[Rfam]
RNA: Listeria sRNA rli60
Nucleotides: 210
Base pairs, nucleotide, nucleotide: 025208026207046199047198048197049196050195051194053192055190059135060134061133062132064119065118066117067116068115069114072109139184140183141182142181143180148176149174150173151171152170153169154168155167156166
Number, partner (000 for none) and nucleotide at each position: 001000a002000g003000c004000u005000u006000a007000u008000c009000a010000a011000u012000u013000u014000u015000a016000a017000a018000a019000u020000a021000a022000u023000u024000c025208g026207a027000a028000c029000u030000a031000u032000u033000a034000a035000g036000a037000a038000u039000a040000a041000u042000u043000a044000a045000c046199c047198a048197u049196u050195c051194a052000u053192c054000g055190a056000a057000a058000g059135g060134a061133g062132u063000a064119u065118a066117a067116u068115a069114a070000a071000a072109u073000g074000a075000c076000a077000u078000a079000u080000c081000a082000u083000a084000c085000g086000a087000c088000a089000c090000a091000a092000u093000a094000c095000c096000u097000a098000c099000c100000a101000a102000c103000a104000a105000c106000u107000c108000a109072a110000a111000a112000c113000g114069u115068u116067a117066u118065u119064a120000u121000c122000a123000u124000u125000u126000u127000a128000u129000u130000a131000u132062a133061c134060u135059c136000g137000u138000a139184a140183g141182g142181a143180c144000u145000c146000g147000a148176a149174c150173a151171u152170u153169a154168g155167u156166a157000a158000g159000g160000u161000u162000u163000c164000a165000c166156u167155g168154u169153u170152a171151a172000a173150u174149g175000u176148u177000u178000a179000a180143g181142u182141c183140c184139u185000a186000u187000u188000u189000c190055u191000a192053g193000u194051u195050g196049a197048a198047u199046g200000g201000g202000a203000c204000g205000u206000u207026u208025u209000u210000u